[Rfam]
RNA sequence: GGGUGCUUAAGGCUUUCUGUCUUAAGCACGUUUGAGGGACAGAAAGCAGAAAGCCCCGGGCAAUGUUUCCAUUAACCCGAGGCUAUCCCUCAACUCCGAACAAGUUGAGAUUAGCCUCUUACCCUUACGUUUGCAAGGAGUAAAAGGCAUGACG
Number, nucleotide and partner (000 for none) at each position: 001g057002g056003g055004u000005g054006c053007u052008u051009a000010a000011g000012g047013c046014u045015u044016u043017c042018u041019g040020u039021c038022u037023u036024a000025a000026g033027c000028a000029c000030g000031u000032u000033u026034g000035a000036g023037g022038g021039a020040c019041a018042g017043a016044a015045a014046g013047c012048a000049g000050a000051a008052a007053g006054c005055c003056c002057c001058g078059g077060g076061c000062a073063a072064u071065g070066u000067u000068u000069c000070c065071a064072u063073u062074a000075a000076c060077c059078c058079g118080a117081g116082g115083c114084u000085a000086u000087c000088c000089c109090u108091c107092a106093a105094c104095u000096c000097c000098g000099a000100a000101c000102a000103a000104g094105u093106u092107g091108a090109g089110a000111u000112u000113a000114g083115c082116c081117u080118c079119u000120u000121a000122c146123c000124c000125u000126u142127a141128c000129g000130u000131u000132u000133g000134c000135a000136a000137g000138g000139a000140g000141u127142a126143a000144a000145a000146g122147g000148c000149a000150u000151g000152a000153c000154g000